[Rfam]
RNA sequence: UUGCAAUAAGGUGAUGGAGUUCACCGUAAUCUCGGAUAUUCCGAUAAUGACUCCUACUAGCUU
Numbered sequence: 001u002u003g004c005a006a007u008a009a010g011g012u013g014a015u016g017g018a019g020u021u022c023a024c025c026g027u028a029a030u031c032u033c034g035g036a037u038a039u040u041c042c043g044a045u046a047a048u049g050a051c052u053c054c055u056a057c058u059a060g061c062u063u
Stems, first nucleotide, its partner, number of pairs: 010025004016054006032044004
Dot-bracket structure: .........[[[[..((((((]]]]......((((.....))))....)))))).........
RNA: Fluoride riboswitch aptamer (crcB RNA motif)
Organism: Methylomusa anaerophila